Shown here is a 131-nucleotide sequence from Musa troglodytarum, a member of the family "Small nucleolar RNA snoR77".
RNA sequence: AGGCAGCCCCUUUGCCGGAUCAUGGCAUUGGUGGUGUUGAUUUGCUCGGAGAACAAAAUCAAGCUUUUGCUCUUCAGAUCGGUUGAGAGAUUUCUUCUCCUUGAUGCUGGUCUAGUAGGCCUUAGCACAUC
Number, nucleotide and partner (000 for none) at each position: 001a000002g038003g037004c036005a035006g000007c034008c033009c031010c030011u000012u000013u027014g026015c025016c024017g023018g000019a000020u000021c000022a000023u017024g016025g015026c014027a013028u000029u000030g010031g009032u000033g008034g007035u005036g004037u003038u002039g000040a000041u000042u000043u000044g000045c000046u000047c000048g000049g000050a000051g000052a000053a000054c000055a000056a000057a000058a000059u000060c000061a000062a000063g000064c125065u124066u000067u000068u000069g120070c119071u118072c000073u000074u000075c000076a113077g112078a111079u110080c109081g000082g107083u106084u000085g000086a000087g099088a098089g097090a000091u000092u000093u000094c000095u000096u000097c089098u088099c087100c000101u000102u000103g000104a000105u000106g083107c082108u000109g080110g079111u078112c077113u076114a000115g000116u000117a000118g071119g070120c069121c000122u000123u000124a065125g064126c000127a000128c000129a000130u000131c000
It scores 95 bits against the family's covariance model. The source organism's lineage runs through Eukaryota, Streptophytina, Embryophyta, Tracheophyta and Musa.